The family of this 75-nucleotide sequence from Myotis lucifugus is "mir-9223 microRNA precursor family".
[Rfam]
RNA sequence: GGCGGUUCUCAGGUGAUGCACCCCGGAAUUGGGUUCCCUCCUCUCUGGUUCCAGUUAUGUCACCCAAGAACCGCA
Numbered sequence: 001g002g003c004g005g006u007u008c009u010c011a012g013g014u015g016a017u018g019c020a021c022c023c024c025g026g027a028a029u030u031g032g033g034u035u036c037c038c039u040c041c042u043c044u045c046u047g048g049u050u051c052c053a054g055u056u057a058u059g060u061c062a063c064c065c066a067a068g069a070a071c072c073g074c075a
Stems, first nucleotide, its partner, number of pairs: 002074002005071005012064006020056001023054001025052009
Lineage of the source: Eukaryota > Sarcopterygii > Boreoeutheria > Vespertilionidae > Myotis.